[Rfam]
Overview
The record is a 145-nucleotide RNA from Ruminiclostridium cellulolyticum, which matches "c-di-AMP riboswitch aptamer (ydaO/yuaA leader)" in Rfam. Rfam links the family to the GO terms cyclic-di-AMP binding and regulation of gene expression. NCBI's taxonomy places the organism under Bacteria, Bacillota, Eubacteriales, Oscillospiraceae, Ruminiclostridium cellulolyticum.
RNA sequence: AAUAAUUUAUCGCUGAAUUAUGGCAGUUUGACUGCUAUAAGCGGGGGAACCAUUCAAAUGGGGUGAAUCCUGUGUUAUCAGGUAGGGUUAGUCUCUUACAACCCGAAUCCGGCAGCUAACUUCGUAAGCGUUGGGGAGAAAGUGA
Number, nucleotide and partner (000 for none) at each position: 001a000002a000003u000004a000005a000006u000007u000008u000009a000010u000011c130012g129013c128014u127015g000016a000017a000018u040019u039020a038021u037022g036023g035024c034025a033026g032027u000028u000029u000030g000031a000032c026033u025034g024035c023036u022037a021038u020039a019040a018041g125042c124043g123044g122045g121046g120047g000048a000049a000050c000051c060052a059053u000054u000055c000056a000057a000058a000059u052060g051061g110062g109063g108064u000065g000066a000067a000068u000069c082070c081071u080072g079073u000074g000075u000076u000077a000078u000079c072080a071081g070082g069083u000084a000085g104086g103087g102088u101089u000090a000091g000092u000093c000094u000095c000096u000097u000098a000099c000100a000101a088102c087103c086104c085105g000106a000107a000108u063109c062110c061111g000112g000113c000114a000115g000116c000117u000118a000119a000120c046121u045122u044123c043124g042125u041126a000127a014128g013129c012130g011131u000132u000133g000134g000135g000136g000137a000138g000139a000140a000141a000142g000143u000144g000145a000